Rfam assigns this 145-nucleotide RNA from Capsicum baccatum to the family "Small nucleolar RNA F1/F2/snoR5a". The family's consensus secondary structure was predicted with PFOLD. About the family: This family contains F1, F2 and snoR5a sequences, all of which are members of the the H/ACA class of snoRNA that guide the sites of modification of uridines to pseudouridines. The source organism's lineage runs through Eukaryota, Gunneridae, Solanales, Solanoideae and Capsicum.
RNA sequence: UGUUGCCUAUGGUAUCUAAUGUCCAGACUACUUUGUUGCUGGGUGUUUCGUUUUACGGGCAGAAAUUGAACAAAAGAGUAGAUCUUGCGACACAGUUGGCUUCUAUAUCGAUAAGCCUUCUGUUACUUAAACCCUACUUACAUCU
Dot-bracket structure: ...(((((.........(((((((((.(.(......))))))))))).......)..))))...............(((((..........((((..((((............))))..))))..........))))).......